Background
The record is a 103-nucleotide sequence from Roseateles sp. DAIF2, which matches "c-di-GMP-I riboswitch aptamer" in Rfam. NCBI's taxonomy places the organism under Bacteria, Pseudomonadota, Betaproteobacteria, Burkholderiales, Roseateles.
RNA sequence: GAACCUACUCGGCACACCCGGUCUGAAAAGCGGGGUCGCAAAGCCACCGGUCUAACGCCCGCGUUUUUUCAAAGCGCGCGGCCAUGACAGCGGGGUUGCCAGC
Numbered sequence: 001g002a003a004c005c006u007a008c009u010c011g012g013c014a015c016a017c018c019c020g021g022u023c024u025g026a027a028a029a030g031c032g033g034g035g036u037c038g039c040a041a042a043g044c045c046a047c048c049g050g051u052c053u054a055a056c057g058c059c060c061g062c063g064u065u066u067u068u069u070c071a072a073a074g075c076g077c078g079c080g081g082c083c084a085u086g087a088c089a090g091c092g093g094g095g096u097u098g099c100c101a102g103c
Stems, first nucleotide, its partner, number of pairs: 012039002017034004023030002042097004047093003050088003057082003
Pairs were carried over by alignment from the consensus structure, which is taken from published work.